[Rfam]
Notes
Rfam assigns this 77-nucleotide RNA sequence from Thermobrachium celere to the family "S10-Clostridia ribosomal protein leader". The match comes from Rfam's covariance-model search (43 bits). It is annotated as a cis-regulatory leader. The source organism's lineage runs through Bacteria, Bacillati, Bacillota, Eubacteriales and Thermobrachium celere.
RNA sequence: AAAGUGCGAUGAGGCAAGAGGUUGCCGUUAUCGGGGAAUUCUUGCGGAGUAUGUCCUGAUCAAGAAUCGGGCGACGA
Dot-bracket structure: .............(((.(((....(((....)))....))).)))......((((..(.((.......)).))))).
Numbered sequence: 001a002a003a004g005u006g007c008g009a010u011g012a013g014g015c016a017a018g019a020g021g022u023u024g025c026c027g028u029u030a031u032c033g034g035g036g037a038a039u040u041c042u043u044g045c046g047g048a049g050u051a052u053g054u055c056c057u058g059a060u061c062a063a064g065a066a067u068c069g070g071g072c073g074a075c076g077a
Stems, first nucleotide, its partner, number of pairs: 014045003018041003025034003052076004058072001060070002